A member of the RNA family "chrB-a RNA", 79 nucleotides long.
It is annotated as a cis-regulatory element.

RNA sequence: CUUAUGGGGACGUGCGAUGCUCCCCACGAGGCGACAUGCCGAAGUUAUCGCGUCCUGUCCAUUAUGGGGACGCUGCAUG
Numbered sequence: 001c002u003u004a005u006g007g008g009g010a011c012g013u014g015c016g017a018u019g020c021u022c023c024c025c026a027c028g029a030g031g032c033g034a035c036a037u038g039c040c041g042a043a044g045u046u047a048u049c050g051c052g053u054c055c056u057g058u059c060c061a062u063u064a065u066g067g068g069g070a071c072g073c074u075g076c077a078u079g
Stems, first nucleotide, its partner, number of pairs: 005026005050073006
Rfam's curators put it in the seed alignment.